[Rfam]
RNA sequence: CCCUUAUCUUUUAAAAGUUUCAAGUUGGUCCCUUAUCUUAAUUUUAAGUUUCAAGUUGGUCCAUUCCGUCAAUUUUUUAACUAUUUCCGUUAAAUUUUGACACGUGGUAACUAAUUUGGACACGUGGCACACUUAGACAUAUGACACGUGUCCAACUUUAACGGUAACAGUAAAAAAAUUGACGGAAUGGACCAACUUGAAACCUAAAAAAAAGAUAAGGGACCAACUUGAAACUUUUAAAAGAUAAGGGA
Numbered sequence: 001c002c003c004u005u006a007u008c009u010u011u012u013a014a015a016a017g018u019u020u021c022a023a024g025u026u027g028g029u030c031c032c033u034u035a036u037c038u039u040a041a042u043u044u045u046a047a048g049u050u051u052c053a054a055g056u057u058g059g060u061c062c063a064u065u066c067c068g069u070c071a072a073u074u075u076u077u078u079a080a081c082u083a084u085u086u087c088c089g090u091u092a093a094a095u096u097u098u099g100a101c102a103c104g105u106g107g108u109a110a111c112u113a114a115u116u117u118g119g120a121c122a123c124g125u126g127g128c129a130c131a132c133u134u135a136g137a138c139a140u141a142u143g144a145c146a147c148g149u150g151u152c153c154a155a156c157u158u159u160a161a162c163g164g165u166a167a168c169a170g171u172a173a174a175a176a177a178a179u180u181g182a183c184g185g186a187a188u189g190g191a192c193c194a195a196c197u198u199g200a201a202a203c204c205u206a207a208a209a210a211a212a213a214g215a216u217a218a219g220g221g222a223c224c225a226a227c228u229u230g231a232a233a234c235u236u237u238u239a240a241a242a243g244a245u246a247a248g249g250g251a
Base pairs, nucleotide, nucleotide: 002249003248004247005246006245007244008243023228024227025226027224028223029222031220032219033218034217035216036215037214038213039212042209043208045206046205
This 251-nucleotide RNA sequence from Trifolium subterraneum belongs to the Rfam family "MIR2655 microRNA precursor family". Gene Ontology terms of the family: RISC complex and miRNA-mediated post-transcriptional gene silencing. Lineage of the source: Eukaryota > Streptophyta > Tracheophyta > Euphyllophyta > Trifolium.